[Rfam]
Alphaproteobacterial sRNA ar7: a 140-nucleotide RNA from Affinirhizobium straminoryzae.

RNA sequence: AGACGGCACUGAUCACGCCGCCGUCUGACUGCAGGCUUGUCCCCCGCCGCGUCAGACCGGACAAAGGCCUUACCCCCUCUCCGGGCCUUUGUCCUCUCAUCCGCCGCCACGGCCGUCCCCUCCGGCCGUGGCGGUUUUUG
Numbered sequence: 001a002g003a004c005g006g007c008a009c010u011g012a013u014c015a016c017g018c019c020g021c022c023g024u025c026u027g028a029c030u031g032c033a034g035g036c037u038u039g040u041c042c043c044c045c046g047c048c049g050c051g052u053c054a055g056a057c058c059g060g061a062c063a064a065a066g067g068c069c070u071u072a073c074c075c076c077c078u079c080u081c082c083g084g085g086c087c088u089u090u091g092u093c094c095u096c097u098c099a100u101c102c103g104c105c106g107c108c109a110c111g112g113c114c115g116u117c118c119c120c121u122c123c124g125g126c127c128g129u130g131g132c133g134g135u136u137u138u139u140g
Stems, first nucleotide, its partner, number of pairs: 024056006034048003059094011104134012

On this family, see del Val et al., RNA Biol 2012: "A survey of sRNA families in alpha-proteobacteria". The pairing is the family consensus, mapped onto this sequence.